The record is a 66-nucleotide RNA from Plasmodium relictum, which matches "Selenocysteine insertion sequence 5" in Rfam. A search with the family's covariance model found it, with a score of 80 bits. Rfam links the family to the GO term selenocysteine incorporation. By type it is a cis-regulatory element.

Nucleotides: 066
Stems, first nucleotide, its partner, number of pairs: 002065007015053002019049006029042003
Number, partner (000 for none) and nucleotide at each position: 001000a002065a003064u004063g005062a006061a007060c008059g009000a010000a011000u012000g013000a014000a015053g016052a017000a018000c019049u020048a021047u022046u023045c024044c025000a026000a027000a028000a029042u030041c031040c032000u033000u034000u035000g036000u037000a038000a039000a040031g041030g042029a043000a044024g045023g046022a047021a048020u049019a050000a051000a052016u053015c054000g055000g056000a057000c058000a059008u060007g061006u062005u063004c064003a065002u066000a